[Rfam]
RNA sequence: GUCAACAACCCCUCGGCUAAAGACCGAGUGGCUUGAGAGAUAACUUUCAAGCCAAGUUGAUUAGCCUAAGUUCUUUGAGAACUACGUUACUGUAGAAUAUAUUGUAGGCAGCUUGGAAUACCCCACUCGUUCCAAAGUCUGCGGUUUGUGUUUUUAAACAUCUCUGAGGGUAGGAGAAGUGAUACAAACUUUAAACCUACGGAUAACAUUGGCGAAGUGGAUCAC
Numbered sequence: 001g002u003c004a005a006c007a008a009c010c011c012c013u014c015g016g017c018u019a020a021a022g023a024c025c026g027a028g029u030g031g032c033u034u035g036a037g038a039g040a041u042a043a044c045u046u047u048c049a050a051g052c053c054a055a056g057u058u059g060a061u062u063a064g065c066c067u068a069a070g071u072u073c074u075u076u077g078a079g080a081a082c083u084a085c086g087u088u089a090c091u092g093u094a095g096a097a098u099a100u101a102u103u104g105u106a107g108g109c110a111g112c113u114u115g116g117a118a119u120a121c122c123c124c125a126c127u128c129g130u131u132c133c134a135a136a137g138u139c140u141g142c143g144g145u146u147u148g149u150g151u152u153u154u155u156a157a158a159c160a161u162c163u164c165u166g167a168g169g170g171u172a173g174g175a176g177a178a179g180u181g182a183u184a185c186a187a188a189c190u191u192u193a194a195a196c197c198u199a200c201g202g203a204u205a206a207c208a209u210u211g212g213c214g215a216a217g218u219g220g221a222u223c224a225c
Base pairs, nucleotide, nucleotide: 001061002060003059004058005057006056010031011030012028013027017022032051033050034049035048036047037046038045039044064213065212066211068209069083070082071081072080073079086207087206088205089204091201092200093199094198095197108142109141113135114134115133116132117131118130119129123220124219125218126217127216144189145188146187147186148185149184150183151182152181158180159179161177162176163175164174165172166171
Rfam assigns this 225-nucleotide RNA from Desulfobacter latus to the family "HNH endonuclease-associated RNA and ORF (HEARO) RNA".
The source organism's lineage runs through Bacteria, Thermodesulfobacteriota, Desulfobacteria, Desulfobacteraceae and Desulfobacter.
It is annotated as a non-coding RNA gene.
It scores 109 bits against the family's covariance model.